Rfam assigns this 379-nucleotide RNA sequence from Paracidovorax avenae to the family "transfer-messenger RNA".
A search with the family's covariance model found it, with a score of 181 bits.
The family's RNA type in Rfam is non-coding RNA gene.
A reference for the family is Williams and Bartel (1996), "Phylogenetic analysis of tmRNA secondary structure", RNA.
[Rfam]
RNA sequence: GGGGCUGCCCUGGUUUCGACGUGGGUUCGGAAUCGGUGUGGUGCAUGUCGAGCUUGAUUGGCGCUCGUAAAUCUGCAUUCAACAAACCAACUGCAAACGACGAACGUUUCGCACUCGCCGCUUAAACACCGGUGAGCCUUGCAACAGCACGCUGACGGGCUGGGCAAGGGGGCCGCAAGGCCUCCCGGCUGCAAGGUUAUUCACGUCAGCUGGCCUCCUGCCGGGUACCUUGGCAUGGGGCGAGAUCCAAGGGUGCUGGCCUUCCUCGCAGCGUGCGACUGCGCGGCUUGGAAGGUGAGAUCCAAAACAGACCGCUAAACAUGUAGAUCUGCCCGAAGAAGGCUUGCGGACGCGGGUUCAAUUCCCGCCAGCUCCACCA
Numbered sequence: 001g002g003g004g005c006u007g008c009c010c011u012g013g014u015u016u017c018g019a020c021g022u023g024g025g026u027u028c029g030g031a032a033u034c035g036g037u038g039u040g041g042u043g044c045a046u047g048u049c050g051a052g053c054u055u056g057a058u059u060g061g062c063g064c065u066c067g068u069a070a071a072u073c074u075g076c077a078u079u080c081a082a083c084a085a086a087c088c089a090a091c092u093g094c095a096a097a098c099g100a101c102g103a104a105c106g107u108u109u110c111g112c113a114c115u116c117g118c119c120g121c122u123u124a125a126a127c128a129c130c131g132g133u134g135a136g137c138c139u140u141g142c143a144a145c146a147g148c149a150c151g152c153u154g155a156c157g158g159g160c161u162g163g164g165c166a167a168g169g170g171g172g173c174c175g176c177a178a179g180g181c182c183u184c185c186c187g188g189c190u191g192c193a194a195g196g197u198u199a200u201u202c203a204c205g206u207c208a209g210c211u212g213g214c215c216u217c218c219u220g221c222c223g224g225g226u227a228c229c230u231u232g233g234c235a236u237g238g239g240g241c242g243a244g245a246u247c248c249a250a251g252g253g254u255g256c257u258g259g260c261c262u263u264c265c266u267c268g269c270a271g272c273g274u275g276c277g278a279c280u281g282c283g284c285g286g287c288u289u290g291g292a293a294g295g296u297g298a299g300a301u302c303c304a305a306a307a308c309a310g311a312c313c314g315c316u317a318a319a320c321a322u323g324u325a326g327a328u329c330u331g332c333c334c335g336a337a338g339a340a341g342g343c344u345u346g347c348g349g350a351c352g353c354g355g356g357u358u359c360a361a362u363u364c365c366c367g368c369c370a371g372c373u374c375c376a377c378c379a
Base pairs, nucleotide, nucleotide: 001375002374003373004372005371006370007369020348021347022346023345024344025343026342027341033336034335035334036333038332039331040330041329044323045322046321047320048319049067050066051065052064053063054082055081056080057079059077060076114136115135116134117133118132119131120130137196138195139194140193141192142191145162146161147160148159151210152209153208154207155206156205157204213241214240215239216238217237219235220234221233223257224256228252259296260295261294262293263292264291265290268287271284272283273282275315276314277313352368353367354366355365356364